Record summary
Shown here is an 87-nucleotide RNA from Gossypium raimondii, a member of the family "MIR7486 microRNA precursor family". Lineage of the source: Eukaryota > Magnoliopsida > malvids > Malvales > Gossypium. The family's consensus secondary structure was predicted with RNAalifold.
RNA sequence: CACGUCAGCGCGGUUUGCUGACGUGGCAGAAAAUCGCGUCCACGUAAUCGCAGUUUAUGUCCACGUCAGCAAAGCGCGCUGACGUAG
Numbered sequence: 001c002a003c004g005u006c007a008g009c010g011c012g013g014u015u016u017g018c019u020g021a022c023g024u025g026g027c028a029g030a031a032a033a034u035c036g037c038g039u040c041c042a043c044g045u046a047a048u049c050g051c052a053g054u055u056u057a058u059g060u061c062c063a064c065g066u067c068a069g070c071a072a073a074g075c076g077c078g079c080u081g082a083c084g085u086a087g
Base pairs, nucleotide, nucleotide: 002085003084004083005082006081007080008079009078010077011076012075014073015072016071017070018069019068020067021066023064024063025062026061029058031056032055033054034053036051037050038049
Dot-bracket structure: .(((((((((((.((((((((.((((..(.((((.(((..........))).)))).)..)))).)))))))).)))))))))))..